The family of this 83-nucleotide sequence from Nothobranchius furzeri is "mir-219 microRNA precursor family". The literature on the family includes a 2003 paper in Science by Lim et al., "Vertebrate microRNA genes". Rfam links the family to the GO terms miRNA-mediated post-transcriptional gene silencing and RISC complex. The family's consensus secondary structure was predicted with RNAalifold. The organism belongs to Nothobranchius, within Eukaryota. A search with the family's covariance model found it, with a score of 70 bits.
RNA sequence: GUCGCGACUGAUUGUCCAAACGCAAUUCUUGCGUAAAAAUCCAAUUCAGACCCCAAGAAUUGUGUAUGGACAUCUGUUGCUGC
Numbered sequence: 001g002u003c004g005c006g007a008c009u010g011a012u013u014g015u016c017c018a019a020a021c022g023c024a025a026u027u028c029u030u031g032c033g034u035a036a037a038a039a040u041c042c043a044a045u046u047c048a049g050a051c052c053c054c055a056a057g058a059a060u061u062g063u064g065u066a067u068g069g070a071c072a073u074c075u076g077u078u079g080c081u082g083c
Base pairs, nucleotide, nucleotide: 002082004080005079006078007077010074011073012072014071015070016069017068018067021064022063023062024061025060026059027058028057029056030055031054